[Rfam]
RNA sequence: CCGUACUUAGAUGGAUAGUGGUAGCGAACUGAAAAGUUUGCUAGUUCGUAUUUUUAAGUAUGAUGUUGUGUUUGCAUAUUGGUCUAGGAAACUAGACUGGAGUAACGCAAGUUACUCGUUUCACUUCCUGUAUAUUUUGAACCCUUUUGGUUUAACGCCGCCCACUUUGGGCGGUUUUUUUAU
Numbered sequence: 001c002c003g004u005a006c007u008u009a010g011a012u013g014g015a016u017a018g019u020g021g022u023a024g025c026g027a028a029c030u031g032a033a034a035a036g037u038u039u040g041c042u043a044g045u046u047c048g049u050a051u052u053u054u055u056a057a058g059u060a061u062g063a064u065g066u067u068g069u070g071u072u073u074g075c076a077u078a079u080u081g082g083u084c085u086a087g088g089a090a091a092c093u094a095g096a097c098u099g100g101a102g103u104a105a106c107g108c109a110a111g112u113u114a115c116u117c118g119u120u121u122c123a124c125u126u127c128c129u130g131u132a133u134a135u136u137u138u139g140a141a142c143c144c145u146u147u148u149g150g151u152u153u154a155a156c157g158c159c160g161c162c163c164a165c166u167u168u169g170g171g172c173g174g175u176u177u178u179u180u181u182a183u
Stems, first nucleotide, its partner, number of pairs: 009053004015049002021047001023042008080099008101116006132153001134151003157175007
GcvB RNA: a 183-nucleotide RNA from Pasteurellaceae bacterium RH1A. The literature on the family includes a 2015 paper in EMBO J by Miyakoshi et al., "Cross talk between ABC transporter mRNAs via a target mRNA-derived sponge of the GcvB small RNA". Rfam's curators write: The gcvB gene encodes a small untranslated RNA involved in expression of the dipeptide and oligopeptide transport systems in Escherichia coli. The source organism's lineage runs through Bacteria, Pseudomonadati, Pseudomonadota, Gammaproteobacteria and Pasteurellaceae.